This 513-nucleotide part of an RNA from Ichthyophthirius multifiliis belongs to the Rfam family "Eukaryotic small subunit ribosomal RNA". The literature on the family includes a 2002 paper in BMC Bioinformatics by Cannone et al., "The comparative RNA web (CRW) site: an online database of comparative sequence and structure information for ribosomal, intron, and other RNAs". The base pairs follow the family's consensus structure, which is taken from published work. A search with the family's covariance model found it, with a score of 1619 bits.
RNA sequence: GUUGCAGUUAAAAAGCUCGUAGUUGAACUUCUGCCUAUUUUAGCUGGGUUCUCUUAGCUAAAAUGGGCAUACGUUUGCAAACCAAACUCGGCCUUCACUGGUUCGACUUGGGGAGUAAACAUUUUACUGUGAAAAAAUUAGAGUGUUUCAGGCAGGUUAUAGCCCGGAUACAUCAGCAUGGAAUAAUGGAAUAGGACUGAGUCCAUUUUAUUGGUUAUUGGAUUUGGUAAUGAUUAAUAGGGACAGUUGGGGGCAUUAGUAUUUAAUAGUCAGAGGUGAAAUUCUUGGAUUUAUUAAGGACUAACUAAUGCGAAAGCAUUUGCCAAAGAUGUUUUCAUUAAUCAAGAACGAAAGUUAGGGGAUCAAAGACGAUCAGAUACCGUCGUAGUCUUAACUAUAAACUAUACCGACUCGGGAUCGGCUGGAAUACUAUGUCCAGUCGGCACCGUAUGAGAAAUCAAAGUCUUUGGGUUCUGGGGGAAGUAUGGUCGCAAGGCUGAAACUUAAAGGAAU
Number, nucleotide and partner (000 for none) at each position: 001g000002u000003u000004g000005c476006a475007g474008u000009u000010a000011a000012a000013a473014a000015g349016c000017u347018c346019g000020u000021a000022g342023u341024u340025g000026a000027a000028c000029u000030u000031c000032u000033g000034c000035c000036u000037a000038u000039u000040u000041u000042a000043g000044c000045u000046g000047g000048g000049u000050u000051c000052u000053c000054u000055u000056a000057g000058c000059u000060a000061a000062a000063a000064u000065g000066g000067g000068c000069a000070u000071a000072c000073g000074u000075u000076u000077g000078c000079a000080a000081a000082c000083c000084a000085a000086a000087c000088u000089c000090g000091g000092c000093c000094u000095u000096c000097a000098c000099u000100g000101g000102u000103u000104c000105g000106a000107c000108u000109u000110g000111g000112g000113g000114a000115g000116u000117a000118a000119a000120c000121a000122u000123u000124u000125u000126a000127c000128u000129g000130u000131g000132a000133a000134a000135a000136a000137a000138u000139u000140a000141g000142a000143g000144u000145g000146u000147u000148u000149c000150a000151g000152g000153c000154a000155g000156g000157u000158u000159a000160u000161a000162g000163c000164c000165c000166g000167g000168a000169u000170a000171c000172a000173u000174c000175a000176g000177c000178a000179u000180g000181g000182a000183a000184u000185a000186a000187u000188g000189g000190a000191a000192u000193a000194g000195g000196a000197c000198u000199g000200a000201g000202u000203c000204c000205a000206u000207u000208u000209u000210a000211u000212u000213g000214g000215u000216u000217a000218u000219u000220g000221g000222a000223u000224u000225u000226g000227g000228u000229a000230a000231u000232g000233a000234u000235u000236a000237a000238u000239a000240g336241g335242g334243a333244c331245a330246g000247u328248u327249g000250g000251g000252g324253g323254c322255a321256u000257u000258a302259g301260u000261a000262u298263u297264u296265a295266a294267u293268a292269g291270u000271c000272a000273g284274a283275g282276g000277u000278g000279a000280a000281a000282u275283u274284c273285u000286u000287g000288g000289a000290u000291u269292u268293a267294u266295u265296a264297a263298g262299g000300a000301c259302u258303a000304a000305c000306u000307a000308a000309u000310g317311c316312g000313a000314a000315a000316g311317c310318a000319u000320u000321u255322g254323c253324c252325a000326a000327a248328g247329a000330u245331g244332u000333u243334u242335u241336c240337a000338u000339u000340a024341a023342u022343c000344a000345a000346g018347a017348a000349c015350g000351a000352a000353a000354g395355u394356u393357a392358g391359g390360g000361g000362a000363u000364c388365a000366a000367a000368g384369a383370c382371g381372a000373u000374c000375a000376g000377a000378u000379a000380c000381c371382g370383u369384c368385g000386u000387a000388g364389u000390c359391u358392u357393a356394a355395c354396u000397a000398u000399a000400a000401a000402c000403u000404a000405u000406a472407c471408c470409g465410a464411c463412u000413c448414g447415g446416g000417a000418u443419c442420g441421g440422c439423u438424g437425g436426a000427a435428u434429a433430c000431u000432a000433u429434g428435u427436c425437c424438a423439g422440u421441c420442g419443g418444c000445a000446c415447c414448g413449u000450a000451u000452g459453a458454g000455a000456a000457a000458u453459c452460a000461a000462a000463g411464u410465c409466u000467u000468u000469g000470g408471g407472u406473u013474c007475u006476g005477g000478g505479g504480g503481a000482a000483g000484u000485a000486u000487g498488g497489u496490c495491g000492c000493a000494a000495g490496g489497c488498u487499g000500a000501a000502a000503c480504u479505u478506a000507a000508a000509g000510g000511a000512a000513u000